The record is a 53-nucleotide sequence from Halarchaeum acidiphilum, which matches "leuA-Halobacteria RNA" in Rfam. Rfam's curators put it in the seed alignment. It is annotated as a cis-regulatory element.
RNA sequence: GACGUCGGAGGAUAGAGGAAGUCGCCGCAGGGCGGCUGGCCGUGAAAUCCGAC
Numbered sequence: 001g002a003c004g005u006c007g008g009a010g011g012a013u014a015g016a017g018g019a020a021g022u023c024g025c026c027g028c029a030g031g032g033c034g035g036c037u038g039g040c041c042g043u044g045a046a047a048u049c050c051g052a053c
Base pairs, nucleotide, nucleotide: 020037021036022035023034024033025032026031